A member of the RNA family "sRNA-Xcc1" from Bartonella bovis, 89 nucleotides long. The match comes from Rfam's covariance-model search (53 bits). The source organism's lineage runs through Bacteria, Pseudomonadota, Alphaproteobacteria, Bartonella and Bartonella bovis. The family's RNA type in Rfam is small RNA.

RNA sequence: GUCGGGUGUGGUUAUGCUAUACAAUACCUUUAUGGGGAAAGCAUAACGACGGACUAUGCACCGUGUUUGUUAACACCCGGCGCCCUUCU
Numbered sequence: 001g002u003c004g005g006g007u008g009u010g011g012u013u014a015u016g017c018u019a020u021a022c023a024a025u026a027c028c029u030u031u032a033u034g035g036g037g038a039a040a041g042c043a044u045a046a047c048g049a050c051g052g053a054c055u056a057u058g059c060a061c062c063g064u065g066u067u068u069g070u071u072a073a074c075a076c077c078c079g080g081c082g083c084c085c086u087u088c089u
Stems, first nucleotide, its partner, number of pairs: 001081009012046004017041002027036003049064004